[Rfam]
RNA sequence: UAAAGUUAAGGGCAAACCUGUCUAAAGGCAGGGACGCAAAGCCGAGGGUCUAAAGCGUUUGCCGCGCUAUGACAGCCUGGCUGCCGAU
Numbered sequence: 001u002a003a004a005g006u007u008a009a010g011g012g013c014a015a016a017c018c019u020g021u022c023u024a025a026a027g028g029c030a031g032g033g034a035c036g037c038a039a040a041g042c043c044g045a046g047g048g049u050c051u052a053a054a055g056c057g058u059u060u061g062c063c064g065c066g067c068u069a070u071g072a073c074a075g076c077c078u079g080g081c082u083g084c085c086g087a088u
Stems, first nucleotide, its partner, number of pairs: 012037002017032006040082004045078003048073003055067004
RNA: c-di-GMP-I riboswitch aptamer